[Rfam]
RNA: Guanidine-II riboswitch aptamer (mini-ykkC)
Nucleotides: 049
Base pairs, nucleotide, nucleotide: 001020002019005016006015007014008013036049037048038047039046040045
Number, partner (000 for none) and nucleotide at each position: 001020u002019c003000a004000c005016c006015g007014g008013g009000a010000c011000g012000a013008c014007c015006c016005g017000a018000c019002g020001g021000g022000c023000g024000a025000c026000g027000a028000a029000a030000a031000a032000g033000g034000a035000a036049c037048c038047g039046g040045g041000a042000c043000g044000a045040c046039c047038c048037g049036g